[Rfam]
RNA sequence: AAAGGAGCAAUACCAACCCUUUUGAUAAAAGAAGAAAUUGGUAUUGCUCCUUUAUUU
Numbered sequence: 001a002a003a004g005g006a007g008c009a010a011u012a013c014c015a016a017c018c019c020u021u022u023u024g025a026u027a028a029a030a031g032a033a034g035a036a037a038u039u040g041g042u043a044u045u046g047c048u049c050c051u052u053u054a055u056u057u
Base pairs, nucleotide, nucleotide: 001053002052003051004050005049006048007047008046009045010044011043012042013041014040020035021034022033023032
RNA: Plastid-psbA-3 3UTR RNA